The family of this 88-nucleotide RNA from Actinomadura barringtoniae is "ZMP/ZTP riboswitch aptamer (pfl RNA motif)".
Nucleotides: 088
Base pairs, nucleotide, nucleotide: 006055007054010051011050012049015046016045017076018075019074020073021072029042030041031040032039065083066082067081068080069079
Number, partner (000 for none) and nucleotide at each position: 001000u002000g003000g004000a005000g006055u007054c008000a009000a010051c011050g012049c013000g014000a015046c016045u017076g018075g019074c020073g021072c022000a023000g024000u025000c026000a027000a028000g029042g030041u031040g032039g033000a034000u035000u036000c037000g038000a039032c040031c041030a042029c043000c044000g045016g046015g047000g048000a049012g050011c051010g052000a053000a054007g055006g056000a057000c058000a059000g060000u061000c062000c063000g064000c065083a066082c067081a068080c069079c070000g071000c072021g073020c074019g075018c076017c077000u078000g079069g080068g081067u082066g083065u084000a085000c086000g087000g088000g